[Rfam]
RNA sequence: CCUGCCACAGUCCUAGUCUUUAAAAGUGACUUUGAACAGUCCAGUGGAGGCUUAUAGUGACCCAGCUUUAGGAAGCAGGGGUGCCCCAACCUAAUGGACAACUCUCUGCGCCGAAAGGCUUGGAACAAAC
Numbered sequence: 001c002c003u004g005c006c007a008c009a010g011u012c013c014u015a016g017u018c019u020u021u022a023a024a025a026g027u028g029a030c031u032u033u034g035a036a037c038a039g040u041c042c043a044g045u046g047g048a049g050g051c052u053u054a055u056a057g058u059g060a061c062c063c064a065g066c067u068u069u070a071g072g073a074a075g076c077a078g079g080g081g082u083g084c085c086c087c088a089a090c091c092u093a094a095u096g097g098a099c100a101a102c103u104c105u106c107u108g109c110g111c112c113g114a115a116a117g118g119c120u121u122g123g124a125a126c127a128a129a130c
Stems, first nucleotide, its partner, number of pairs: 005047004010042001017035002062123004066118004071112002076108006085097002
RNA: Small nucleolar RNA SNORA65